[Rfam]
RNA sequence: GGAGGCAGCCCGGGCCUGGUGGCCCGCCCGGACUUCAAAUCCGGUGGCCCGUCGUGAGGACGGCGGGCGGUGGGUUCAAUUCCCUCCUGCCUCC
Numbered sequence: 001g002g003a004g005g006c007a008g009c010c011c012g013g014g015c016c017u018g019g020u021g022g023c024c025c026g027c028c029c030g031g032a033c034u035u036c037a038a039a040u041c042c043g044g045u046g047g048c049c050c051g052u053c054g055u056g057a058g059g060a061c062g063g064c065g066g067g068c069g070g071u072g073g074g075u076u077c078a079a080u081u082c083c084c085u086c087c088u089g090c091c092u093c094c
Stems, first nucleotide, its partner, number of pairs: 001094008011026006028044005047068007072084003
This 94-nucleotide sequence from bacterium HR11 belongs to the Rfam family "Selenocysteine transfer RNA". It scores 75 bits against the family's covariance model.